[Rfam]
RNA sequence: AGAAAGUGUACCUAGGGUUCCACGCCGGUAGUAUUUCGGCGGUUUGGACCAAGCGGUACAGGCUGCGAGGUUAUACUUUCGCAGCUACACCGGUCGGGAUAAAAGCCCAGGCGGG
Numbered sequence: 001a002g003a004a005a006g007u008g009u010a011c012c013u014a015g016g017g018u019u020c021c022a023c024g025c026c027g028g029u030a031g032u033a034u035u036u037c038g039g040c041g042g043u044u045u046g047g048a049c050c051a052a053g054c055g056g057u058a059c060a061g062g063c064u065g066c067g068a069g070g071u072u073a074u075a076c077u078u079u080c081g082c083a084g085c086u087a088c089a090c091c092g093g094u095c096g097g098g099a100u101a102a103a104a105g106c107c108c109a110g111g112c113g114g115g
Base pairs, nucleotide, nucleotide: 007060008059009058010057011056012055015050016049020047021046022044023041024040025039026038027037028036061086062085063084064083065082066081067080068079069078070077088110090113096108097107098106
The record is a 115-nucleotide RNA sequence from Desulfotruncus arcticus, which matches "Guanidine-I riboswitch aptamer" in Rfam. Rfam describes the family as follows. This family represents a conserved RNA structure found upstream of the ykkC and yxkD genes in Bacillus subtilis and related genes in other bacteria. The function of this family is unclear although it has been suggested that it may function to switch on efflux pumps and detoxification systems in response to harmful environmental molecules. Its family is annotated with regulation of gene expression in the Gene Ontology. Lineage of the source: Bacteria > Eubacteriales > Desulfallaceae > Desulfotruncus > Desulfotruncus arcticus.